Annotation: tRNA: a 79-nucleotide sequence from Thecamonas trahens. NCBI's taxonomy places the organism under Eukaryota, Apusozoa, Apusomonadidae, Thecamonas, Thecamonas trahens. The family's RNA type in Rfam is transfer RNA.

RNA sequence: GAUACCGUGGCCGAGUGGUUAAGGCGCUGUGUUAAGGCCGCAGUUCUCCGGAGCGUGGGUUCGAGUCCCACCGGUGUCA
Dot-bracket structure: (((((((..(((..........))).(((((.......)))))...........(((((.......)))))))))))).